This 82-nucleotide RNA sequence belongs to the Rfam family "Twister_sister_ribozyme".

[Rfam]
RNA sequence: AUGACCCGCAAGGCCGACGGCAUCCCGCCGCCGCUGGUGCAAGCCCAGCCGCCCCGCCGGGGCGGGCGCUCAUGGGUCCAUA
Numbered sequence: 001a002u003g004a005c006c007c008g009c010a011a012g013g014c015c016g017a018c019g020g021c022a023u024c025c026c027g028c029c030g031c032c033g034c035u036g037g038u039g040c041a042a043g044c045c046c047a048g049c050c051g052c053c054c055c056g057c058c059g060g061g062g063c064g065g066g067c068g069c070u071c072a073u074g075g076g077u078c079c080a081u082a
Base pairs, nucleotide, nucleotide: 004077005076006075007074013067014066015065018030019029020028033049034048035047036046050064051063052062053061054060